[Rfam]
RNA sequence: GUCGAGCUAUGUAACGAGAGCUUGUAACCCAAGUGGGGACUAUAAGAUGGUGGAACACUGGAUCGGCCCACGGGUCGGAUUUGUUGUUGGCAUAGGUCUGGACUGCCCAAUCCAAGCUGUGAGUGAACCGUAUGAACCAAGCGAAGGUUUGAUCCGUACGGUUGCUAAAGGUUGAGGGUAUUGCGUUAGGCUGGCUUCACAGAGCAGCGACUACCUCCCGCUCUCAGCAGUGGACGGACAACGGUUCGACGCCACACAAAUCCACUAUGGUCCGCUGGCUCGUAACCCGCUUGAACCACCAUUUUU
Numbered sequence: 001g002u003c004g005a006g007c008u009a010u011g012u013a014a015c016g017a018g019a020g021c022u023u024g025u026a027a028c029c030c031a032a033g034u035g036g037g038g039a040c041u042a043u044a045a046g047a048u049g050g051u052g053g054a055a056c057a058c059u060g061g062a063u064c065g066g067c068c069c070a071c072g073g074g075u076c077g078g079a080u081u082u083g084u085u086g087u088u089g090g091c092a093u094a095g096g097u098c099u100g101g102a103c104u105g106c107c108c109a110a111u112c113c114a115a116g117c118u119g120u121g122a123g124u125g126a127a128c129c130g131u132a133u134g135a136a137c138c139a140a141g142c143g144a145a146g147g148u149u150u151g152a153u154c155c156g157u158a159c160g161g162u163u164g165c166u167a168a169a170g171g172u173u174g175a176g177g178g179u180a181u182u183g184c185g186u187u188a189g190g191c192u193g194g195c196u197u198c199a200c201a202g203a204g205c206a207g208c209g210a211c212u213a214c215c216u217c218c219c220g221c222u223c224u225c226a227g228c229a230g231u232g233g234a235c236g237g238a239c240a241a242c243g244g245u246u247c248g249a250c251g252c253c254a255c256a257c258a259a260a261u262c263c264a265c266u267a268u269g270g271u272c273c274g275c276u277g278g279c280u281c282g283u284a285a286c287c288c289g290c291u292u293g294a295a296c297c298a299c300c301a302u303u304u305u306u
Base pairs, nucleotide, nucleotide: 001040002039003038004023005022006021007020008019010017028037029036030035044305045304046303047302048301049300050299051298052297053296056293057292058289060287064282065281066280067278068277071274072273073272074271075270076269077263078262079261080260081259082258083257084256086255088254089253090252099248100247101246102245103244104243105242107237108236111234112233113232114231116228117227118226119225121223122222123221124220126163127162128161129160130159131158132157133156134155136153138151139150140149141148142147165170174217175216176215177214184209185208186207191202192201193200